[Rfam]
The record is a 302-nucleotide RNA from Aphidius gifuensis, which matches "Arthropod 7SK RNA" in Rfam. Clan: 7SK clan. For this family Rfam cites "Arthropod 7SK RNA" (Gruber et al., Mol Biol Evol, 2008). Taxonomically the source falls in Aphidius (Eukaryota, Panarthropoda, Arthropoda, Neoptera). By type it is a non-coding RNA gene.
RNA sequence: GGAAGUGUGUGCUAGUGAUAUCACAGCUGUACAUCGAUCGCUAAUGCGUUUGCAGCAGAUCUGUUCAGUCUGUUUUGAGUCACAUUGUCGCUUCAAAGUAGCUUGUGUGCGGCUCCCGAUGCGCGUUACCAAAUUCUUAAUGUCCCGGCAUCAAGGAUUUGAAUAACGCCUGCACGGUUGAGCUUUCACGUCGCUCCUCGAACCGCGAUUUCCAAAUUGGGGGGCAAUCGAAUAGGUCAGACGAGGUAAUUUGUCGCUUCCAUAUACAAGGCACUGCAGAUCGCAGUAUGCCAUGUUUUUUG
Number, nucleotide and partner (000 for none) at each position: 001g261002g260003a259004a258005g257006u256007g255008u000009g000010u000011g000012c000013u000014a000015g083016u082017g081018a080019u079020a000021u000022c000023a000024c000025a000026g000027c068028u067029g066030u000031a064032c063033a062034u000035c000036g061037a060038u059039c058040g056041c055042u054043a000044a000045u000046g000047c000048g000049u000050u000051u000052g000053c000054a042055g041056c040057a000058g039059a038060u037061c036062u033063g032064u031065u000066c029067a028068g027069u000070c000071u000072g000073u000074u000075u000076u000077g000078a000079g019080u018081c017082a016083c015084a000085u000086u000087g000088u000089c000090g000091c000092u000093u000094c000095a000096a000097a000098g000099u000100a000101g000102c000103u000104u000105g000106u000107g000108u000109g000110c000111g000112g000113c000114u000115c000116c000117c000118g000119a000120u000121g000122c000123g000124c000125g000126u000127u000128a000129c000130c000131a000132a000133a000134u000135u000136c000137u000138u000139a000140a000141u000142g000143u000144c000145c000146c000147g000148g000149c000150a000151u000152c000153a000154a000155g000156g000157a000158u000159u000160u000161g000162a000163a000164u000165a000166a000167c000168g000169c000170c000171u000172g000173c000174a000175c000176g000177g000178u000179u000180g000181a000182g000183c000184u000185u000186u000187c000188a000189c000190g000191u000192c000193g000194c000195u000196c000197c000198u000199c000200g000201a000202a000203c000204c000205g000206c000207g000208a000209u000210u000211u000212c000213c000214a000215a000216a000217u000218u000219g000220g000221g000222g000223g000224g000225c000226a000227a000228u000229c000230g000231a000232a000233u000234a000235g000236g000237u000238c000239a000240g000241a000242c000243g000244a000245g000246g000247u000248a000249a000250u000251u000252u000253g000254u000255c007256g006257c005258u004259u003260c002261c001262a000263u000264a000265u000266a000267c000268a000269a000270g292271g291272c290273a287274c286275u285276g284277c283278a000279g000280a000281u000282c000283g277284c276285a275286g274287u273288a000289u000290g272291c271292c270293a000294u000295g000296u000297u000298u000299u000300u000301u000302g000